Record summary: This 46-nucleotide sequence from Cyclonatronum proteinivorum belongs to the Rfam family "Acido-Lenti-1 RNA". It scores 38 bits against the family's covariance model.
RNA sequence: CCCGGGGUUGGUACCCCGGGCUGUGGUAUGUCGCCCUUUCAGGACU
Numbered sequence: 001c002c003c004g005g006g007g008u009u010g011g012u013a014c015c016c017c018g019g020g021c022u023g024u025g026g027u028a029u030g031u032c033g034c035c036c037u038u039u040c041a042g043g044a045c046u
Base pairs, nucleotide, nucleotide: 001020002019003018004017005016006015007014008013033045035043036042037041